[Rfam]
Rfam assigns this 124-nucleotide sequence from Nyssa sinensis to the family "Small nucleolar RNA snoR111". The organism belongs to Nyssa, within Eukaryota. It scores 101 bits against the family's covariance model.

Nucleotides: 124
Stems, first nucleotide, its partner, number of pairs: 006034004011028006062120002064117004070108004079103007088094001
Number, partner (000 for none) and nucleotide at each position: 001000a002000a003000g004000a005000a006034a007033a008032u009031g010000a011028g012027a013026g014025a015024c016023a017000a018000a019000u020000a021000c022000a023016u024015g025014u026013c027012u028011c029000u030000a031009c032008a033007u034006u035000g036000a037000a038000a039000a040000g041000a042000a043000c044000a045000g046000a047000a048000g049000g050000u051000a052000u053000a054000g055000c056000a057000a058000u059000g060000a061000u062120g063119g064117c065116g066115a067114g068000a069000u070108a071107u072106c073105g074000u075000u076000u077000c078000a079103g080102u081101c082100g083099u084098c085097a086000u087000a088094u089000c090000a091000u092000c093000a094088g095000a096000u097085u098084g099083a100082c101081g102080a103079u104000u105073c106072g107071a108070u109000u110000g111000u112000u113000g114067c115066u116065c117064g118000u119063c120062c121000a122000c123000a124000u